[Rfam]
RNA sequence: AAAAAGGGCUUCUGUCGUGCAUGGCACACGUCGAGCGGCGGGGGUAUCCUCAGCCGUUUUUCGUGCGGAAUCGACAUCAAGAGAUUUCGGAAGCACAAUUUUUGUUAACUGGGCAGCUGGUGAUCGUUGGUCCUAGCGCCCUU
Numbered sequence: 001a002a003a004a005a006g007g008g009c010u011u012c013u014g015u016c017g018u019g020c021a022u023g024g025c026a027c028a029c030g031u032c033g034a035g036c037g038g039c040g041g042g043g044g045u046a047u048c049c050u051c052a053g054c055c056g057u058u059u060u061u062c063g064u065g066c067g068g069a070a071u072c073g074a075c076a077u078c079a080a081g082a083g084a085u086u087u088c089g090g091a092a093g094c095a096c097a098a099u100u101u102u103u104g105u106u107a108a109c110u111g112g113g114c115a116g117c118u119g120g121u122g123a124u125c126g127u128u129g130g131u132c133c134u135a136g137c138g139c140c141c142u143u
Base pairs, nucleotide, nucleotide: 008094009093010092011091012090013026014025015024016023017022027065028064029063030062033059034058035057036056037055038054066089067088068087069086070085071084072083111141112140113139114138116137117136118135119134120133122132123131124130125129

The record is a 143-nucleotide RNA sequence from Monodelphis domestica, which matches "U11 spliceosomal RNA" in Rfam. Rfam's curators put it in the seed alignment. Rfam links the family to the GO terms mRNA 5'-splice site recognition, pre-mRNA 5'-splice site binding and U11 snRNP.